Small Cajal body specific RNA 4: a 129-nucleotide RNA from Dryoscopus gambensis. The family has 24 seed sequences and 634 matches in Rfam 15.1. A search with the family's covariance model found it, with a score of 88 bits. About the family: scaRNAs are a specific class of small nuclear RNAs which localise to the Cajal bodies and guide the modification of RNA polymerase II transcribed spliceosomal RNAs U1, U2, U4, U5 and U12. ACA26 belongs to the H/ACA box class of guide RNAs as it has the predicted hairpin-hinge-hairpin-tail structure, conserved H/ACA-box motifs and is found associated with GAR1. Clan: SCARNA4 clan. Rfam links the family to the GO terms RNA processing, Cajal body and nucleolus. Taxonomically the source falls in Dryoscopus (Eukaryota, Opisthokonta, Bilateria, Archelosauria).

RNA sequence: ACUGGAGGACUAACGAGGCUGAGUCUGGAGAGUGGGACUCGGCUGACAGUGGCCUCCUAAAAGAAAAGGGAUGGAGAGAGCAGUCCUACUUCCAGGGAAGCACAGGGCUCACUGUGCCAUCUGACACCA
Dot-bracket structure: ..((((((........(((.((((((........)))))).)))........))))).)........(((........((.((((((...(.(......).).))))))..))......))).......